The record is a 78-nucleotide RNA sequence from Lactuca sativa, which matches "Small nucleolar RNA SNORD18" in Rfam. Taxonomically the source falls in Lactuca (Eukaryota, Viridiplantae, Streptophyta, Cichorieae).
[Rfam]
RNA sequence: GAGAUAUGAUGAGCAAAUUUAUUGGUCCGUGUUUCUGAAUUUACAGUGACGAUAGAUCUUUAACCAAACUCUGAUCUC
Numbered sequence: 001g002a003g004a005u006a007u008g009a010u011g012a013g014c015a016a017a018u019u020u021a022u023u024g025g026u027c028c029g030u031g032u033u034u035c036u037g038a039a040u041u042u043a044c045a046g047u048g049a050c051g052a053u054a055g056a057u058c059u060u061u062a063a064c065c066a067a068a069c070u071c072u073g074a075u076c077u078c
Stems, first nucleotide, its partner, number of pairs: 001078004

Background
It scores 51 bits against the family's covariance model. The family's RNA type in Rfam is C/D-box small nucleolar RNA. For this family Rfam cites "Two different snoRNAs are encoded in introns of amphibian and human L1 ribosomal protein genes" (Prislei et al., Nucleic Acids Res, 1993).